[Rfam]
RNA sequence: CCAUAGCCCUGAUGGGAACGGCAUCCUUUUGUGAUGAGGUACGAAGAGCAAAAGAUAUAGUGGACAGCAGGUUCCCGG
Number, nucleotide and partner (000 for none) at each position: 001c000002c000003a000004u000005a000006g000007c000008c000009c070010u069011g068012a000013u066014g065015g000016g000017a000018a061019c060020g000021g000022c000023a056024u055025c054026c000027u000028u000029u051030u050031g049032u048033g000034a000035u000036g000037a000038g000039g000040u000041a000042c000043g000044a000045a000046g000047a000048g032049c031050a030051a029052a000053a000054g025055a024056u023057a000058u000059a000060g019061u018062g000063g000064a000065c014066a013067g000068c011069a010070g009071g000072u000073u000074c000075c000076c000077g000078g000
RNA: Flavo-1 RNA
Organism: Chryseobacterium sp. Leaf404